[Rfam]
RNA sequence: CGGCUGUAGCAACAUCAAGAAAAGAGAAUUUAAAACUGGUCGGCUUGUUAGUUUGUCCACGCAAUCCGCUUACCGAACUUCUCACAUUA
Numbered sequence: 001c002g003g004c005u006g007u008a009g010c011a012a013c014a015u016c017a018a019g020a021a022a023a024g025a026g027a028a029u030u031u032a033a034a035a036c037u038g039g040u041c042g043g044c045u046u047g048u049u050a051g052u053u054u055g056u057c058c059a060c061g062c063a064a065u066c067c068g069c070u071u072a073c074c075g076a077a078c079u080u081c082u083c084a085c086a087u088u089a
Stems, first nucleotide, its partner, number of pairs: 024083005030077002038070003042066002045063001046061001
The family of this 89-nucleotide sequence from Asparagus officinalis is "Small nucleolar RNA snoR109". The family's consensus secondary structure was predicted with WAR.